[Rfam]
RNA sequence: AGAACGCCGCCGGAGCACACGAGGGUUUUUUAACCAGCAUACUUGUUAUGUGGUAGUCGUGCCGGGGGUUCUUUCUUUU
Number, nucleotide and partner (000 for none) at each position: 001a074002g073003a072004a000005c000006g069007c068008c066009g000010c065011c064012g063013g062014a000015g000016c000017a000018c061019a060020c059021g058022a057023g000024g035025g034026u033027u032028u000029u000030u000031u000032a027033a026034c025035c024036a000037g000038c050039a049040u048041a047042c000043u000044u000045g000046u000047u041048a040049u039050g038051u000052g000053g000054u000055a000056g000057u022058c021059g020060u019061g018062c013063c012064g011065g010066g008067g000068g007069u006070u000071c000072u003073u002074u001075c000076u000077u000078u000079u000
Shown here is a 79-nucleotide RNA sequence, a member of the family "DUF3800-VII RNA".
The family's RNA type in Rfam is small RNA.